[Rfam]
RNA sequence: UAAGCCAGAAGAGGAGCGCCGCCCAGGUAAUUUAUCCGAGGAUCCGUAAAUCCAGUGACGAUAAACCAGGGGGAGCGGUGCCGAGAUGAUGGGCAAUACGGGAAUGCCAUCAUCGACUACAGGGGCUGAAUCCUCUGGGUUGUCACCAGCAACGUGCAGGCUAUCAAUGCAAACUGCACGUUCAGCAAGGUGGAGCGCUUCUGGGUGU
Numbered sequence: 001u002a003a004g005c006c007a008g009a010a011g012a013g014g015a016g017c018g019c020c021g022c023c024c025a026g027g028u029a030a031u032u033u034a035u036c037c038g039a040g041g042a043u044c045c046g047u048a049a050a051u052c053c054a055g056u057g058a059c060g061a062u063a064a065a066c067c068a069g070g071g072g073g074a075g076c077g078g079u080g081c082c083g084a085g086a087u088g089a090u091g092g093g094c095a096a097u098a099c100g101g102g103a104a105u106g107c108c109a110u111c112a113u114c115g116a117c118u119a120c121a122g123g124g125g126c127u128g129a130a131u132c133c134u135c136u137g138g139g140u141u142g143u144c145a146c147c148a149g150c151a152a153c154g155u156g157c158a159g160g161c162u163a164u165c166a167a168u169g170c171a172a173a174c175u176g177c178a179c180g181u182u183c184a185g186c187a188a189g190g191u192g193g194a195g196c197g198c199u200u201c202u203g204g205g206u207g208u
Stems, first nucleotide, its partner, number of pairs: 006203006016081007024073001031065006085114006092108004115141004120137006143193005
RNA: Lysine riboswitch aptamer